[Rfam]
RNA sequence: ACACAACUGGUUCGAGAACCUCCCAGUAUAAAAAACUAGGCAGAC
Numbered sequence: 001a002c003a004c005a006a007c008u009g010g011u012u013c014g015a016g017a018a019c020c021u022c023c024c025a026g027u028a029u030a031a032a033a034a035a036c037u038a039g040g041c042a043g044a045c
Stems, first nucleotide, its partner, number of pairs: 006027005016037001